[Rfam]
RNA sequence: CCGCCGAAAAGGCAAAGCCGGAGCGAUCCGGCGACGCAAUGCAACAGGUCCGUUUCGGCGGACGGCUGAGCUGUCGAA
Numbered sequence: 001c002c003g004c005c006g007a008a009a010a011g012g013c014a015a016a017g018c019c020g021g022a023g024c025g026a027u028c029c030g031g032c033g034a035c036g037c038a039a040u041g042c043a044a045c046a047g048g049u050c051c052g053u054u055u056c057g058g059c060g061g062a063c064g065g066c067u068g069a070g071c072u073g074u075c076g077a078a
Stems, first nucleotide, its partner, number of pairs: 012037002017032006041071002045068003048063006
The record is a 78-nucleotide sequence from Desulfuromonas soudanensis, which matches "c-di-GMP-I riboswitch aptamer" in Rfam. The base pairs follow the family's consensus structure, which is taken from published work. The family has 155 seed sequences and 5,092 matches in Rfam 15.1. It scores 51 bits against the family's covariance model.